[Rfam]
RNA sequence: CCAAAGGCUCUUUUAAGAGCCAUCCACAUUCUCACAUUGAAAAAG
Dot-bracket structure: .....((((((....))))))........................

Record summary
The record is a 45-nucleotide RNA from Odocoileus virginianus, which matches "Histone 3' UTR stem-loop" in Rfam. It is annotated as a cis-regulatory element. On this family, see Dominski and Marzluff, Gene 1999: "Formation of the 3' end of histone mRNA". The match comes from Rfam's covariance-model search (37 bits). The source organism's lineage runs through Eukaryota, Gnathostomata, Euteleostomi, Cervidae and Odocoileus virginianus.